RNA: small nucleolar RNA snoR127
Nucleotides: 193
Base pairs, nucleotide, nucleotide: 001192002191003190004189
Number, partner (000 for none) and nucleotide at each position: 001192c002191u003190g004189g005000a006000a007000u008000g009000a010000u011000g012000u013000u014000g015000c016000u017000u018000a019000g020000c021000c022000a023000a024000a025000u026000c027000a028000g029000a030000c031000a032000u033000a034000g035000a036000u037000g038000u039000g040000c041000u042000c043000c044000a045000u046000a047000a048000g049000g050000c051000a052000a053000u054000g055000u056000c057000u058000u059000c060000a061000a062000a063000g064000c065000u066000u067000g068000u069000g070000u071000u072000a073000a074000u075000u076000g077000u078000u079000u080000u081000a082000g083000u084000a085000a086000a087000c088000a089000u090000g091000u092000u093000g094000a095000u096000g097000g098000c099000c100000u101000c102000u103000u104000g105000u106000g107000u108000a109000a110000c111000u112000u113000a114000u115000g116000c117000c118000a119000a120000g121000c122000a123000u124000u125000a126000g127000a128000c129000a130000a131000g132000a133000u134000g135000c136000c137000u138000u139000g140000u141000g142000u143000a144000g145000a146000a147000g148000u149000g150000c151000a152000u153000c154000c155000u156000u157000u158000g159000a160000u161000g162000a163000u164000c165000a166000c167000u168000u169000g170000g171000a172000g173000a174000c175000u176000a177000g178000u179000a180000g181000c182000u183000g184000g185000c186000u187000g188000a189004c190003c191002a192001g193000a